Overview: A member of the RNA family "Eukaryotic large subunit ribosomal RNA" from Aegilops tauschii, 504 nucleotides of a longer RNA.
[Rfam]
RNA sequence: UGGAACAAUGUAGGCAAGGGAAGUCGGCAAAACAGAUCCGUAACUUCGGGAAAAGGAUUGGCUUUGAGGAUUGGGCUCGGGGGUCCCGGCCCCGAACCCGUCGGCAGUCGGCGGAUUGCUCGAGCUGCUCACGCGGCGAGAGCGGGUCGCCGCGUGCCGGCCGGGGGACGGACCGGGAAUCGUCCCUUCGGGGGCUUUCCCUGAGCAUGAAACAGUCGACUCAAAACUGGUACGGACAAGGGAAAUCCGACUGUUUAAUUAAAACAAAGCAUUGCGAUGGUCCUCGCGGAUGCUGACGCAAUGUGAUUUCUGCCCAGUGCUCUGAAUGCCAAAGUGAAGAAAUUCAACCAAGCGCGGGUAAACGGCGGGAGUAACUAUGACUCUCUUAAGGUAGCGAAAUGCCUCGUCAUCUAAUUAGUGACGCGCAUGAAUGGAUUAACGAGAUUCCCACUGUCCCUAUCUACUAUCCAGCAAAACAACAACCAAGGGAACGGGCUUGGCGGA
Numbered sequence: 001u002g003g004a005a006c007a008a009u010g011u012a013g014g015c016a017a018g019g020g021a022a023g024u025c026g027g028c029a030a031a032a033c034a035g036a037u038c039c040g041u042a043a044c045u046u047c048g049g050g051a052a053a054a055g056g057a058u059u060g061g062c063u064u065u066g067a068g069g070a071u072u073g074g075g076c077u078c079g080g081g082g083g084u085c086c087c088g089g090c091c092c093c094g095a096a097c098c099c100g101u102c103g104g105c106a107g108u109c110g111g112c113g114g115a116u117u118g119c120u121c122g123a124g125c126u127g128c129u130c131a132c133g134c135g136g137c138g139a140g141a142g143c144g145g146g147u148c149g150c151c152g153c154g155u156g157c158c159g160g161c162c163g164g165g166g167g168a169c170g171g172a173c174c175g176g177g178a179a180u181c182g183u184c185c186c187u188u189c190g191g192g193g194g195c196u197u198u199c200c201c202u203g204a205g206c207a208u209g210a211a212a213c214a215g216u217c218g219a220c221u222c223a224a225a226a227c228u229g230g231u232a233c234g235g236a237c238a239a240g241g242g243a244a245a246u247c248c249g250a251c252u253g254u255u256u257a258a259u260u261a262a263a264a265c266a267a268a269g270c271a272u273u274g275c276g277a278u279g280g281u282c283c284u285c286g287c288g289g290a291u292g293c294u295g296a297c298g299c300a301a302u303g304u305g306a307u308u309u310c311u312g313c314c315c316a317g318u319g320c321u322c323u324g325a326a327u328g329c330c331a332a333a334g335u336g337a338a339g340a341a342a343u344u345c346a347a348c349c350a351a352g353c354g355c356g357g358g359u360a361a362a363c364g365g366c367g368g369g370a371g372u373a374a375c376u377a378u379g380a381c382u383c384u385c386u387u388a389a390g391g392u393a394g395c396g397a398a399a400u401g402c403c404u405c406g407u408c409a410u411c412u413a414a415u416u417a418g419u420g421a422c423g424c425g426c427a428u429g430a431a432u433g434g435a436u437u438a439a440c441g442a443g444a445u446u447c448c449c450a451c452u453g454u455c456c457c458u459a460u461c462u463a464c465u466a467u468c469c470a471g472c473a474a475a476a477c478a479a480c481a482a483c484c485a486a487g488g489g490a491a492c493g494g495g496c497u498u499g500g501c502g503g504a
Stems, first nucleotide, its partner, number of pairs: 001470004010464005016458001018456003035059005044049001060228002063225006069217005075206009084178003088174002091171001097165004101160006109152006116145006124137005229233001241449002244446004248441002252266003269304008280291004308435003312366003317363002319359004324355001327354003335346004367385006386390001406422005483500005
A search with the family's covariance model found it, with a score of 3048 bits. NCBI's taxonomy places the organism under Eukaryota, Embryophyta, Spermatophyta, Triticinae, Aegilops tauschii.